[Rfam]
RNA sequence: GUGUCCUCGGGCGAUGGGGCUCGCCUGUCUCAACCGCCGAUCCGGCUGAUGGCUCCUAUCCACUC
Dot-bracket structure: .........[[[[..((((((]]]]..........(((.....)))....)))))).........
A member of the RNA family "Fluoride riboswitch aptamer (crcB RNA motif)", 65 nucleotides long.